[Rfam]
RNA sequence: UGAUGAGAAAUCUCCGGAAUCGCUGUACGGCAUUGAUGAUUCCCUUGAACCCUUGUAUAUCUGAUGACUGUGGCUGUUCUGUC
Numbered sequence: 001u002g003a004u005g006a007g008a009a010a011u012c013u014c015c016g017g018a019a020u021c022g023c024u025g026u027a028c029g030g031c032a033u034u035g036a037u038g039a040u041u042c043c044c045u046u047g048a049a050c051c052c053u054u055g056u057a058u059a060u061c062u063g064a065u066g067a068c069u070g071u072g073g074c075u076g077u078u079c080u081g082u083c
Base pairs, nucleotide, nucleotide: 002083003082004081005080
A member of the RNA family "Small nucleolar RNA MBII-202" from Charadrius vociferus, 83 nucleotides long. Its family is annotated with RNA processing and nucleolus in the Gene Ontology. The family's RNA type in Rfam is C/D-box small nucleolar RNA. Lineage of the source: Eukaryota > Sauria > Theropoda > Charadriidae > Charadrius. The literature on the family includes a 2001 paper in EMBO J by Huttenhofer et al., "RNomics: an experimental approach that identifies 201 candidates for novel, small, non-messenger RNAs in mouse".